Annotation:
The family of this 38-nucleotide RNA sequence from Acetomicrobium hydrogeniformans is "Selenocysteine insertion sequence 4". The literature on the family includes a 2001 paper in Arch Microbiol by Graentzdoerffer et al., "Molecular analysis of the grd operon coding for genes of the glycine reductase and of the thioredoxin system from Clostridium sticklandii".
[Rfam]
Nucleotides: 038
Base pairs, nucleotide, nucleotide: 005031006030013027014026015025016024017023018022
Number, partner (000 for none) and nucleotide at each position: 001000g002000g003000a004000a005031c006030c007000u008000g009000u010000a011000c012000u013027c014026g015025u016024u017023g018022c019000g020000g021000u022018g023017c024016a025015a026014c027013g028000a029000u030006g031005g032000u033000a034000a035000a036000g037000g038000a